RNA sequence: GAGAAAUGAUGAAUACAUUUUGGUCCGUGUUUCUGAAUUUACCGUGACCGAUACCAUUAAACCAUUUCUGAUCUC
Numbered sequence: 001g002a003g004a005a006a007u008g009a010u011g012a013a014u015a016c017a018u019u020u021u022g023g024u025c026c027g028u029g030u031u032u033c034u035g036a037a038u039u040u041a042c043c044g045u046g047a048c049c050g051a052u053a054c055c056a057u058u059a060a061a062c063c064a065u066u067u068c069u070g071a072u073c074u075c
Stems, first nucleotide, its partner, number of pairs: 001075004
RNA: Small nucleolar RNA SNORD18